[Rfam]
RNA sequence: UUAGCAGCGGUGAUUAUAAAUAAUUCCUCGUACUGAAUGCUAUUGCCAUGGCAUGACAGACACGUUUACACCCAUAGAAUAUGAGCUCU
Dot-bracket structure: ..((.((..............................................................................))))
Numbered sequence: 001u002u003a004g005c006a007g008c009g010g011u012g013a014u015u016a017u018a019a020a021u022a023a024u025u026c027c028u029c030g031u032a033c034u035g036a037a038u039g040c041u042a043u044u045g046c047c048a049u050g051g052c053a054u055g056a057c058a059g060a061c062a063c064g065u066u067u068a069c070a071c072c073c074a075u076a077g078a079a080u081a082u083g084a085g086c087u088c089u
Stems, first nucleotide, its partner, number of pairs: 003089002006087002